[Rfam]
RNA sequence: UGUGUCUUUAAAUUGUGUCCAGAGAGGCCAAUAAGACAUGAAUAUAUAGAGUUAUAGGAGAUGAGUGCGCUCAUACAUCUAUAGCUCCAAACGACUAUACUCAUGUCUUUUAGGCAUGAGUAUUUUUUUAU
Numbered sequence: 001u002g003u004g005u006c007u008u009u010a011a012a013u014u015g016u017g018u019c020c021a022g023a024g025a026g027g028c029c030a031a032u033a034a035g036a037c038a039u040g041a042a043u044a045u046a047u048a049g050a051g052u053u054a055u056a057g058g059a060g061a062u063g064a065g066u067g068c069g070c071u072c073a074u075a076c077a078u079c080u081a082u083a084g085c086u087c088c089a090a091a092c093g094a095c096u097a098u099a100c101u102c103a104u105g106u107c108u109u110u111u112a113g114g115c116a117u118g119a120g121u122a123u124u125u126u127u128u129u130a131u
Stems, first nucleotide, its partner, number of pairs: 003038006014031001017028003045091001047089001049087010094126001097123011
RNA: PyrR binding site